[Rfam]
RNA sequence: AACAGGCAAGAUGUUGGCAUAGCUGAGUUGUAAAAUAAGACUUCAGCUGUGCCACAUGCUGCCAUAUU
Numbered sequence: 001a002a003c004a005g006g007c008a009a010g011a012u013g014u015u016g017g018c019a020u021a022g023c024u025g026a027g028u029u030g031u032a033a034a035a036u037a038a039g040a041c042u043u044c045a046g047c048u049g050u051g052c053c054a055c056a057u058g059c060u061g062c063c064a065u066a067u068u
Base pairs, nucleotide, nucleotide: 005063006062007061011057012056013055014054016053017052018051022047023046024045025044026043